RNA sequence: UGUUAAACCAAUUAUUUCAUUUGUAUAAACCCGGAAUAUGGCCGGGCGUUUCUACGGAAAACCGUUAAUUUUCCUCUACAAGUGAAGUAUUCGGAAUU
Number, nucleotide and partner (000 for none) at each position: 001u000002g000003u000004u000005a000006a000007a000008c000009c000010a000011a000012u000013u000014a000015u000016u000017u000018c084019a083020u082021u081022u080023g079024u078025a077026u000027a000028a000029a000030c046031c045032c044033g043034g042035a000036a000037u000038a000039u000040g000041g000042c034043c033044g032045g031046g030047c000048g000049u000050u000051u000052c000053u000054a000055c000056g074057g073058a072059a071060a070061a069062c000063c000064g000065u000066u000067a000068a000069u061070u060071u059072u058073c057074c056075u000076c000077u025078a024079c023080a022081a021082g020083u019084g018085a000086a000087g000088u000089a000090u000091u000092c000093g000094g000095a000096a000097u000098u000
RNA: Purine riboswitch aptamer